[Rfam]
RNA: SAM (S-adenosyl methionine) riboswitch aptamer
Organism: Demequina mangrovi
RNA sequence: GAUCAAGAAGCCCGGCGCCAAGCCCUUCAGCUCGCCGGCUGGCAACCGCGUUCCCGACACGGUGCCCCUGAAGGAAGAUCCGCCGCGUGCCGACCGGCCCGCGGAAGCACGGACG
Number, nucleotide and partner (000 for none) at each position: 001g080002a079003u078004c077005a000006a000007g000008a000009a040010g000011c000012c038013c037014g036015g035016c034017g000018c000019c000020a000021a032022g031023c000024c000025c000026u000027u000028c000029a000030g000031c022032u021033c000034g016035c015036c014037g013038g012039c000040u009041g066042g065043c064044a000045a000046c062047c061048g060049c000050g058051u057052u000053c000054c000055c000056g000057a051058c050059a000060c048061g047062g046063u000064g043065c042066c041067c000068c000069u000070g000071a000072a000073g000074g000075a000076a000077g004078a003079u002080c001081c000082g000083c104084c103085g102086c101087g100088u000089g098090c097091c096092g000093a000094c000095c000096g091097g090098c089099c000100c087101g086102c085103g084104g083105a000106a000107g000108c000109a000110c000111g000112g000113a000114c000115g000